RNA sequence: CGCAUGGGGAUCGCGAUCUCCCCACGAGGCGGCAUGCCCAAGCAUCACGUCCUGUUUUCGAAGGGGACGCAGUAUG
Numbered sequence: 001c002g003c004a005u006g007g008g009g010a011u012c013g014c015g016a017u018c019u020c021c022c023c024a025c026g027a028g029g030c031g032g033c034a035u036g037c038c039c040a041a042g043c044a045u046c047a048c049g050u051c052c053u054g055u056u057u058u059c060g061a062a063g064g065g066g067a068c069g070c071a072g073u074a075u076g
Base pairs, nucleotide, nucleotide: 005024006023007022008021009020010019048069049068050067051066052065
chrB-a RNA: a 76-nucleotide RNA sequence from Microvirga sp. VF16.
Lineage of the source: Bacteria > Pseudomonadota > Hyphomicrobiales > Methylobacteriaceae > Microvirga.
Rfam classes the family as a cis-regulatory element.
The base pairs follow the family's consensus structure, which is taken from published work.
A search with the family's covariance model found it, with a score of 70 bits.